[Rfam]
RNA sequence: AAAAUGCAGGAGUAAUACCCAAAUUCUUGUUUUGUUAAGAAUUUUGGUAUUACUCCUACAA
Numbered sequence: 001a002a003a004a005u006g007c008a009g010g011a012g013u014a015a016u017a018c019c020c021a022a023a024u025u026c027u028u029g030u031u032u033u034g035u036u037a038a039g040a041a042u043u044u045u046g047g048u049a050u051u052a053c054u055c056c057u058a059c060a061a
Stems, first nucleotide, its partner, number of pairs: 006059001008057010021044002024041006